[Rfam]
RNA sequence: GCCUUUGUAGACUUAAUCUGGGCACUACAAAAGAAUAUUAUGCAUGUGAAAAUAUGCUCAUUUGUAGUGUUUGGAUUGAGUUUAUAAGGUUG
Number, nucleotide and partner (000 for none) at each position: 001g090002c089003c088004u087005u000006u000007g000008u000009a083010g082011a081012c080013u079014u078015a077016a076017u075018c074019u073020g072021g071022g070023c069024a068025c067026u066027a065028c064029a063030a062031a061032a000033g000034a000035a000036u000037a000038u000039u060040a000041u000042g000043c056044a055045u054046g053047u052048g000049a000050a000051a000052a047053u046054a045055u044056g043057c000058u000059c000060a039061u031062u030063u029064g028065u027066a026067g025068u024069g023070u022071u021072u020073g019074g018075a017076u016077u015078g014079a013080g012081u011082u010083u009084a000085u000086a000087a004088g003089g002090u001091u000092g000
RNA: MIR1878 microRNA precursor family
Organism: Zizania palustris